[Rfam]
RNA: mir-320 microRNA precursor family
RNA sequence: GGGGAUCUUGGCCUUCUCUUCCCAGUUCUUCACGGAGUUGGGAAAAGCUGGGUUGAGAGGGUGGGGGAAAAAAAAU
Numbered sequence: 001g002g003g004g005a006u007c008u009u010g011g012c013c014u015u016c017u018c019u020u021c022c023c024a025g026u027u028c029u030u031c032a033c034g035g036a037g038u039u040g041g042g043a044a045a046a047g048c049u050g051g052g053u054u055g056a057g058a059g060g061g062u063g064g065g066g067g068a069a070a071a072a073a074a075a076u
Stems, first nucleotide, its partner, number of pairs: 014059005021052005029044003033040002